Shown here is an 84-nucleotide RNA from Bacillus sp. OK048, a member of the family "c-di-GMP-I riboswitch aptamer". Pairs were carried over by alignment from the consensus structure, which is taken from published work. A reference for the family is Sudarsan et al. (2008), "Riboswitches in Eubacteria Sense the Second Messenger Cyclic Di-GMP", Science. GEMM was predicted in a large-scale screen for bacterial structured RNA regulatory elements.
[Rfam]
RNA sequence: AUAAGAUAAAGGCAAACCUCUCGAAAGAUAGGGACGCAAAGCUACAGGUCUAAAGUACUGAACAAUGAUGGCUGAGCUGCUAAA
Numbered sequence: 001a002u003a004a005g006a007u008a009a010a011g012g013c014a015a016a017c018c019u020c021u022c023g024a025a026a027g028a029u030a031g032g033g034a035c036g037c038a039a040a041g042c043u044a045c046a047g048g049u050c051u052a053a054a055g056u057a058c059u060g061a062a063c064a065a066u067g068a069u070g071g072c073u074g075a076g077c078u079g080c081u082a083a084a
Base pairs, nucleotide, nucleotide: 012037013036017032018031019030021028022027040078041077042076043075045074046073047072048069049068050067055063056062